[Rfam]
The family of this 70-nucleotide RNA from Rodentolepis nana is "HDV ribozyme from F. prausnitzii". Rfam links the family to the GO term catalytic activity. The source organism's lineage runs through Eukaryota, Neodermata, Cestoda, Eucestoda and Rodentolepis. The base pairs follow the family's consensus structure, which is taken from published work. The match comes from Rfam's covariance-model search (46 bits). A reference for the family is Webb et al. (2009), "Widespread occurrence of self-cleaving ribozymes", Science.
RNA sequence: AGUGUGCGAUAGGCUUACCUCCACGUGGUGCACCCUGGGCAACGUAUUCUCAUACGGCAAAAAAGUUUAU
Numbered sequence: 001a002g003u004g005u006g007c008g009a010u011a012g013g014c015u016u017a018c019c020u021c022c023a024c025g026u027g028g029u030g031c032a033c034c035c036u037g038g039g040c041a042a043c044g045u046a047u048u049c050u051c052a053u054a055c056g057g058c059a060a061a062a063a064a065g066u067u068u069a070u
Stems, first nucleotide, its partner, number of pairs: 001036002004033004017029003043056005